[Rfam]
RNA sequence: CGACGCCCUCCCGGUAGAGGCGCAGCCCGCCAGCCGGAAGCGAGUCUUGCAUGGGCGGCGGCGACGUCGCUCGUGAAGCGUAGACAGCGGAUGCUGAAGCCCUGUGUGAGCCUCGAUAUUUCCUACCUGUUGAGGCCUUCGGUUUGUGGAACCCGGGGGCAGCAUCGAGGAGACCGCCAAAGGCGAGGUUUCCUCGGCUCGACCGGGGUCCCAGAGCA
Numbered sequence: 001c002g003a004c005g006c007c008c009u010c011c012c013g014g015u016a017g018a019g020g021c022g023c024a025g026c027c028c029g030c031c032a033g034c035c036g037g038a039a040g041c042g043a044g045u046c047u048u049g050c051a052u053g054g055g056c057g058g059c060g061g062c063g064a065c066g067u068c069g070c071u072c073g074u075g076a077a078g079c080g081u082a083g084a085c086a087g088c089g090g091a092u093g094c095u096g097a098a099g100c101c102c103u104g105u106g107u108g109a110g111c112c113u114c115g116a117u118a119u120u121u122c123c124u125a126c127c128u129g130u131u132g133a134g135g136c137c138u139u140c141g142g143u144u145u146g147u148g149g150a151a152c153c154c155g156g157g158g159g160c161a162g163c164a165u166c167g168a169g170g171a172g173a174c175c176g177c178c179a180a181a182g183g184c185g186a187g188g189u190u191u192c193c194u195c196g197g198c199u200c201g202a203c204c205g206g207g208g209u210c211c212c213a214g215a216g217c218a
Stems, first nucleotide, its partner, number of pairs: 011037005019031004025184002040088002044085004048080002050075011108210001110209006129203006135160003140155003165197011
Group II catalytic intron D1-D4-6: a 218-nucleotide sequence from Methylocystis bryophila. The pairing is the family consensus, mapped onto this sequence. About the family: Group II introns are found in rRNA, tRNA and mRNA of organelles in fungi, plants and protists, and also in mRNA in bacteria. The source organism's lineage runs through Bacteria, Pseudomonadati, Alphaproteobacteria, Methylocystaceae and Methylocystis. Gene Ontology term of the family: Group II intron splicing.